The record is a 348-nucleotide RNA sequence from Sulfitobacter sp. JL08, which matches "Alphaproteobacteria transfer-messenger RNA" in Rfam. Bacterial tmRNA, also known as 10Sa RNA or SsrA, is named for its dual tRNA and mRNA-like properties. Its role is to liberate the mRNA from a stalled ribosome. To accomplish this part of the tmRNA is used as a reading frame that ends in a translation stop signal. The broken mRNA is replaced in the ribosome by the tmRNA and translation of the tmRNA leads to addition of a proteolysis tag to the incomplete protein enabling recognition by a protease. Recently a number of permuted tmRNA genes have been found encoded in two parts. tmRNAs have been identified in eubacteria and some chloroplasts but are absent from archaeal and eukaryote nuclear genomes. The source organism's lineage runs through Bacteria, Pseudomonadati, Rhodobacterales, Roseobacteraceae and Sulfitobacter. The family's consensus secondary structure is taken from published work. For this family Rfam cites "Phylogenetic analysis of tmRNA secondary structure" (Williams and Bartel, RNA, 1996).
[Rfam]
RNA sequence: GCAAUUGAAACGCAACACGGGUUGUCUUAUAUAAAAACUGUCCUUCGGGACUAUGAACAUAAACGCGCUCGUAAUACGCGGAUCGGACCCGGGGGCGGUACCCGGCGACUCCACCAAAAACCCGUUCAUUUGGCGGUCAUGGGGUCGAAAUAGGAUCGACGAACGUCUAAAGGGGUUAGCUUUGUUUCGGCGGGGUGCCACCGUAUCGGCCCGAAAAGUACAAUUGCAAAUGACAAUCGUGCUCCGGUAGCCGUUGCUGCGUAAGCAGUAACCAAACCGAAACUUAAGCCCUUGCGCCUAGCAGCGUAAGGCGGGGUUCGCAGGCACCUGGCAACAGAAGCCUGCACU
Dot-bracket structure: .......................................((((....))))...(((((.....((((((........((..(((...(((((.......)))))(((((((............................)))))))............))).)).......))))..))..)))))[[[...((.(((.]]]....))))).....................................................................................................[[[[..((((((]]]]..........))))))...